[Rfam]
RNA sequence: CCCGAUAGCCUCGGGACGGGAUGUGAUCCGCCUCGAGCGGAUUGAACCACCAA
Dot-bracket structure: (((((.....)))))..((.....(((((((.....)))))))...)).....
Numbered sequence: 001c002c003c004g005a006u007a008g009c010c011u012c013g014g015g016a017c018g019g020g021a022u023g024u025g026a027u028c029c030g031c032c033u034c035g036a037g038c039g040g041a042u043u044g045a046a047c048c049a050c051c052a053a
Stems, first nucleotide, its partner, number of pairs: 001015005018048002025043007

A member of the RNA family "eL15-Euryarchaeota ribosomal protein leader" from Halanaeroarchaeum sulfurireducens, 53 nucleotides long.
On this family, see Eckert and Weinberg, BMC Microbiol 2020: "Discovery of 20 novel ribosomal leader candidates in bacteria and archaea".
The family's RNA type in Rfam is cis-regulatory leader.
The source organism's lineage runs through Archaea, Methanobacteriati, Methanobacteriota, Halobacteria and Halanaeroarchaeum.